Shown here is a 194-nucleotide sequence from Ewingella americana, a member of the family "Yersinia sRNA 251".
The family's RNA type in Rfam is antisense RNA.
RNA sequence: AGUAAGCGUGCAGGGUGCGUUUACACAGCUCUGAACGCACGCAGUCCUCUUUACCAAACUGAAUGAUGCCAACCAUCUCGUCUUCUUCGAAGCGAGACAUUGCAUCGCUAAGCCCUGAUACUACCCCACGCGGUAAAUCGCAUUGGGUAACAUCCCCGUUAACUAUCACCGUCACAUUUUCACCGAGACGGGUC
Numbered sequence: 001a002g003u004a005a006g007c008g009u010g011c012a013g014g015g016u017g018c019g020u021u022u023a024c025a026c027a028g029c030u031c032u033g034a035a036c037g038c039a040c041g042c043a044g045u046c047c048u049c050u051u052u053a054c055c056a057a058a059c060u061g062a063a064u065g066a067u068g069c070c071a072a073c074c075a076u077c078u079c080g081u082c083u084u085c086u087u088c089g090a091a092g093c094g095a096g097a098c099a100u101u102g103c104a105u106c107g108c109u110a111a112g113c114c115c116u117g118a119u120a121c122u123a124c125c126c127c128a129c130g131c132g133g134u135a136a137a138u139c140g141c142a143u144u145g146g147g148u149a150a151c152a153u154c155c156c157c158g159u160u161a162a163c164u165a166u167c168a169c170c171g172u173c174a175c176a177u178u179u180u181c182a183c184c185g186a187g188a189c190g191g192g193u194c
Stems, first nucleotide, its partner, number of pairs: 002054005008048001015040005061078001063076003067072001083112002088107001093102003114192004119188001122185001126133002137166002140163001144158003171183002174180001